[Rfam]
RNA sequence: UCUAGGAGGAAACAAAAUGAACGAAGUUCAAUUUUUAUAAAUGUUUCCGACGAAUAGCCGCCGACCGAAGGACGGGGCAAUACAUAUU
Dot-bracket structure: .......((((((..(.((((.....)))).)..........))))))........(((.(...((...))..).)))..........